tRNA: an 86-nucleotide RNA from Pyxidicoccus fallax. It is annotated as a transfer RNA. About the family: Transfer RNA (tRNA) molecules are approximately 80 nucleotides in length. Rfam links the family to the GO term triplet codon-amino acid adaptor activity.
RNA sequence: GCACGAGUGGCGGAACUGGCAGACGCAGCGGACUUAAAAUCCGCUGACCCGCAAGGGUCGUCCGGGUUCGAUCCCCGGCUCGUGCA
Numbered sequence: 001g002c003a004c005g006a007g008u009g010g011c012g013g014a015a016c017u018g019g020c021a022g023a024c025g026c027a028g029c030g031g032a033c034u035u036a037a038a039a040u041c042c043g044c045u046g047a048c049c050c051g052c053a054a055g056g057g058u059c060g061u062c063c064g065g066g067u068u069c070g071a072u073c074c075c076c077g078g079c080u081c082g083u084g085c086a
Base pairs, nucleotide, nucleotide: 001085002084003083004082005081006080007079010026011025012024028044029043030042031041032040062078063077064076065075066074